[Rfam]
RNA: CyVA-1 RNA
RNA sequence: GCACUGGAUGGAGGUUGUUCCGCUGUGAUCCAUUGUCGGACAUCGAAGGAGAGCGACGCUCAGAUGUCUGGACAGUGC
Numbered sequence: 001g002c003a004c005u006g007g008a009u010g011g012a013g014g015u016u017g018u019u020c021c022g023c024u025g026u027g028a029u030c031c032a033u034u035g036u037c038g039g040a041c042a043u044c045g046a047a048g049g050a051g052a053g054c055g056a057c058g059c060u061c062a063g064a065u066g067u068c069u070g071g072a073c074a075g076u077g078c
Base pairs, nucleotide, nucleotide: 001078002077003076004075005074006073009032010031011030012029037070038069039068040067041066042065043064044063